[Rfam]
RNA sequence: GAUGAAAGGAUCCCAAGGAACUCUGCUGUGAUGUGUCGCCCUAACAGAUUCAUAUCACAGCAGUAGUUACUUAGGAUUCUUUCGCC
Numbered sequence: 001g002a003u004g005a006a007a008g009g010a011u012c013c014c015a016a017g018g019a020a021c022u023c024u025g026c027u028g029u030g031a032u033g034u035g036u037c038g039c040c041c042u043a044a045c046a047g048a049u050u051c052a053u054a055u056c057a058c059a060g061c062a063g064u065a066g067u068u069a070c071u072u073a074g075g076a077u078u079c080u081u082u083c084g085c086c
Stems, first nucleotide, its partner, number of pairs: 003084009016072003019068004023063003027059009
About this RNA: The family of this 86-nucleotide sequence from Bombus vosnesenskii is "mir-2944 microRNA precursor family". NCBI's taxonomy places the organism under Eukaryota, Opisthokonta, Protostomia, Dicondylia, Pyrobombus. A search with the family's covariance model found it, with a score of 63 bits.